[Rfam]
RNA: mir-34 microRNA precursor family
RNA sequence: UGGUUGUUGGCAGUGUGGUUAGCUGGUUGUGUGGCCUCUAUUGGUACAACCACUAUCCCUAUUGCCCCAAACCA
Numbered sequence: 001u002g003g004u005u006g007u008u009g010g011c012a013g014u015g016u017g018g019u020u021a022g023c024u025g026g027u028u029g030u031g032u033g034g035c036c037u038c039u040a041u042u043g044g045u046a047c048a049a050c051c052a053c054u055a056u057c058c059c060u061a062u063u064g065c066c067c068c069a070a071a072c073c074a
Stems, first nucleotide, its partner, number of pairs: 002073004009066002012063004017058002020055003024052008